[Rfam]
RNA sequence: UAUAAACAGGUGAGAACCAUUUAAAUCAAGUACUAUAGUACUUGAUUUAAAUGGUUCUCAC
Dot-bracket structure: .........(((((((((((((((((((((..........)))))))))))))))))))))

This 61-nucleotide RNA from Barbeuia madagascariensis belongs to the Rfam family "Plastid-ccsA-ndhD-1 3UTR RNA". The family is grouped with related families in Rfam's "Plastid-ccsA_ndhD 3UTR RNA clan". Rfam's curators write: Plastid-ccsA-ndhD-1 is a non-coding RNA (ncRNA) recognised in plastids. It was found in the three prime untranslated region (3UTR) of ccsA and ndhD genes, its 3UTR location suggests a role in transcript maturation.